[Rfam]
RNA sequence: GCAGCUGCUCCGGGGUGUGCCCGGCAUCGAAUGUGAUGCCCGGCGCUGAGAUGGCAUCACCAAACCCGUUGAACUUGAUCCGGUUCAUACCGGCGAAAGAAGAGCCGUACCGCUGAAG
Numbered sequence: 001g002c003a004g005c006u007g008c009u010c011c012g013g014g015g016u017g018u019g020c021c022c023g024g025c026a027u028c029g030a031a032u033g034u035g036a037u038g039c040c041c042g043g044c045g046c047u048g049a050g051a052u053g054g055c056a057u058c059a060c061c062a063a064a065c066c067c068g069u070u071g072a073a074c075u076u077g078a079u080c081c082g083g084u085u086c087a088u089a090c091c092g093g094c095g096a097a098a099g100a101a102g103a104g105c106c107g108u109a110c111c112g113c114u115g116a117a118g
Stems, first nucleotide, its partner, number of pairs: 007105004011068004016062001017046005053061002074099003080093004
Dot-bracket structure: ......((((((((.((((((....................)))))......((.....)))..)))).....(((...((((......))))...)))..)))).............
The record is a 118-nucleotide RNA from Aquabacterium lacunae, which matches "TPP riboswitch aptamer (THI element)" in Rfam. The organism belongs to Aquabacterium, within Bacteria.